Description
This 384-nucleotide sequence from Roseitalea porphyridii belongs to the Rfam family "Bacterial RNase P class A". It scores 303 bits against the family's covariance model. By type it is a ribozyme.
[Rfam]
Nucleotides: 384
Stems, first nucleotide, its partner, number of pairs: 001380010011369001012335007020049008054367003058364005063227004070270001072268001075223005080094005095109001096107004110218002115216002117212003132157002134153008165183006184207001185205005190199003231292004241283006262275004299318008
Number, partner (000 for none) and nucleotide at each position: 001380c002379c003378a004377g005376u006375c007374g008373g009372c010371c011369g012335g013334g014333c015332g016331g017330c018329c019000g020049c021048g022047g023046c024045g025044u026043c027042c028000u029000c030000a031000u032000g033000c034000c035000g036000a037000a038000a039000g040000g041000c042027g043026g044025a045024c046023g047022u048021c049020g050000a051000g052000g053000a054367a055366a056365g057000u058364c059363c060362g061361g062360g063227c064226u065225c066224c067000a068000u069000g070270g071000a072268g073000a074000a075223c076222g077221g078220u079219g080094c081093c082092g083091g084090a085000u086000a087000a088000c089000g090084u091083c092082c093081g094080g095109c096107g097106g098105g099104g100000g101000c102000g103000a104099c105098c106097c107096c108000a109095g110218g111217g112000a113000c114000a115216g116215u117212g118211c119210c120000a121000c122000a123000g124000a125000a126000a127000g128000c129000a130000a131000a132157c133156c134153g135152c136151c137150c138149g139148c140147g141146c142000g143000c144000c145000a146141g147140c148139g149138c150137g151136g152135g153134u154000a155000a156133g157132g158000g159000u160000g161000a162000a163000a164000g165183g166182g167181u168180g169179g170178g171000g172000u173000a174000a175000g176000a177000g178170c179169c180168c181167a182166c183165c184207g185205c186204a187203u188202g189201g190199c191198c192197g193000g194000u195000a196000a197192c198191g199190g200000a201189c202188c203187a204186u205185g206000g207184c208000a209000c210119g211118g212117u213000a214000a215116a216115c217111c218110c219079c220078a221077c222076c223075g224066g225065g226064a227063g228000c229000a230000a231292g232291a233290c234289c235000g236000a237000a238000u239000a240000g241283g242282g243281a244280c245279g246278g247000c248000g249000c250000g251000g252000g253000c254000g255000c256000a257000a258000g259000c260000c261000c262275g263274g264273u265272g266000u267000c268072u269000c270070c271000g272265c273264a274263c275262c276000a277000g278246c279245c280244g281243u282242c283241c284000g285000g286000g287000u288000g289234g290233g291232u292231u293000g294000c295000a296000u297000g298000a299318g300317g301316c302315g303314u304313c305312c306311g307000g308000c309000g310000a311306c312305g313304g314303g315302c316301g317300u318299c319000c320000c321000a322000g323000a324000u325000g326000a327000a328000u329018g330017g331016c332015u333014g334013c335012c336000g337000g338000g339000c340000c341000g342000c343000g344000a345000a346000a347000g348000c349000g350000g351000c352000u353000c354000a355000c356000a357000g358000a359000a360062c361061c362060c363059g364058g365056c366055u367054u368000a369011c370000a371010g372009g373008c374007c375006g376005a377004c378003u379002g380001g381000c382000a383000a384000u

The family's consensus secondary structure is taken from published work. Lineage of the source: Bacteria > Pseudomonadota > Hyphomicrobiales > Ahrensiaceae > Roseitalea.